[Rfam]
RNA sequence: AACCUAUGAUGAAGAGAUUCUGCCAAAUGAUUUUUCUGAUUAUACCCUACCGUUCCAUUUAUAUCUGAGGUU
Numbered sequence: 001a002a003c004c005u006a007u008g009a010u011g012a013a014g015a016g017a018u019u020c021u022g023c024c025a026a027a028u029g030a031u032u033u034u035u036c037u038g039a040u041u042a043u044a045c046c047c048u049a050c051c052g053u054u055c056c057a058u059u060u061a062u063a064u065c066u067g068a069g070g071u072u
Stems, first nucleotide, its partner, number of pairs: 001072004